Shown here is a 119-nucleotide sequence from Devosia aurantiaca, a member of the family "Rhizobiales sRNA Atu_C8".
Taxonomically the source falls in Devosia (Bacteria, Pseudomonadati, Pseudomonadota, Alphaproteobacteria).
Rfam classes the family as a small RNA.
For this family Rfam cites "Deep sequencing uncovers numerous small RNAs on all four replicons of the plant pathogen Agrobacterium tumefaciens" (Wilms et al., RNA Biol, 2012).
It scores 58 bits against the family's covariance model.

[Rfam]
RNA sequence: GUCCAGUGCGGGCACUCAUUCUCGUAGUAUGCAGGCGCAUCGGCACCGUGGGGUAAAACCCCGCGCGAUAGCUGGUGCGCCGAACACAGGUCCCGAAGGGGGCCUUUUUAUUGCCUUGU
Numbered sequence: 001g002u003c004c005a006g007u008g009c010g011g012g013c014a015c016u017c018a019u020u021c022u023c024g025u026a027g028u029a030u031g032c033a034g035g036c037g038c039a040u041c042g043g044c045a046c047c048g049u050g051g052g053g054u055a056a057a058a059c060c061c062c063g064c065g066c067g068a069u070a071g072c073u074g075g076u077g078c079g080c081c082g083a084a085c086a087c088a089g090g091u092c093c094c095g096a097a098g099g100g101g102g103c104c105u106u107u108u109u110a111u112u113g114c115c116u117u118g119u
Stems, first nucleotide, its partner, number of pairs: 007029001009027001031114003034081010048064006086106001088105007